[Rfam]
RNA sequence: UUCCUUUUCUCACACAACGACCUGUGCCAGAGUUCCCGUCCACCUUCACGGGUGUGUUCUGGUUGAAUGCUGGCAGUUCGUCCGUCCUCAUGGAGCCAUCUCUUUUCCAUAGGUGUCAAUUUCUGGACGACAGGUCGAAGAGUGAGUCGGCGCGAUGCUAAGAAGCCUGAAUUCGCCGCAAGGUUUGAGCUCGGUGGAUGGCGCGUGCCAGGCAGACUGAUUCCUGUUCCCUUUUGCUAGGCCGUCGGCCCAUGAUGCUUGGGACAAACCCAGUCGGCUACAUAC
Number, nucleotide and partner (000 for none) at each position: 001u000002u000003c000004c000005u000006u000007u000008u000009c000010u000011c000012a000013c000014a000015c000016a000017a000018c137019g136020a135021c134022c133023u132024g131025u130026g074027c073028c072029a071030g070031a000032g068033u067034u066035c065036c062037c061038g059039u000040c056041c000042a053043c052044c051045u000046u000047c000048a000049c000050g000051g044052g043053u042054g000055u000056g040057u000058u000059c038060u000061g037062g036063u000064u000065g035066a034067a033068u032069g000070c030071u029072g028073g027074c026075a000076g000077u000078u000079c000080g000081u000082c000083c129084g128085u127086c126087c125088u000089c000090a000091u118092g117093g116094a000095g114096c113097c112098a000099u000100c000101u000102c000103u000104u000105u000106u000107c000108c000109a000110u000111a000112g097113g096114u095115g000116u093117c092118a091119a000120u000121u000122u000123c000124u000125g087126g086127a085128c084129g083130a025131c024132a023133g022134g021135u020136c019137g018138a000139a000140g000141a000142g000143u000144g000145a000146g000147u000148c000149g000150g206151c205152g204153c203154g202155a000156u000157g000158c000159u000160a000161a000162g000163a000164a000165g195166c194167c193168u000169g192170a191171a000172u189173u188174c187175g000176c183177c182178g000179c000180a000181a000182g177183g176184u000185u000186u000187g174188a173189g172190c000191u170192c169193g167194g166195u165196g000197g000198a000199u000200g000201g000202c154203g153204c152205g151206u150207g000208c000209c000210a000211g000212g278213c277214a000215g275216a274217c273218u272219g271220a000221u000222u000223c000224c000225u000226g000227u000228u264229c263230c262231c261232u000233u000234u000235u000236g258237c257238u000239a000240g250241g249242c248243c247244g000245u000246c000247g243248g242249c241250c240251c000252a000253u000254g000255a000256u000257g237258c236259u000260u000261g231262g230263g229264a228265c000266a000267a000268a000269c000270c000271c219272a218273g217274u216275c215276g000277g213278c212279u000280a000281c000282a000283u000284a000285c000